[Rfam]
RNA sequence: CCCGAUGUUCUGCCAUCGGUACUCUACUAGGACAUGCAGCAGGGGCAACCAUGUUGUGUGAAGCUCCUAGGACAAUGUAGCCUCACUCGAGAGAGUGGCGCUCCAUCCGUGAGGAAGAAGCGUGACUGCUAGCACGAAAGCGGUCUGGAGC
Numbered sequence: 001c002c003c004g005a006u007g008u009u010c011u012g013c014c015a016u017c018g019g020u021a022c023u024c025u026a027c028u029a030g031g032a033c034a035u036g037c038a039g040c041a042g043g044g045g046c047a048a049c050c051a052u053g054u055u056g057u058g059u060g061a062a063g064c065u066c067c068u069a070g071g072a073c074a075a076u077g078u079a080g081c082c083u084c085a086c087u088c089g090a091g092a093g094a095g096u097g098g099c100g101c102u103c104c105a106u107c108c109g110u111g112a113g114g115a116a117g118a119a120g121c122g123u124g125a126c127u128g129c130u131a132g133c134a135c136g137a138a139a140g141c142g143g144u145c146u147g148g149a150g151c
Stems, first nucleotide, its partner, number of pairs: 002019006028069005033060009043050002083098006099122004107114002125144006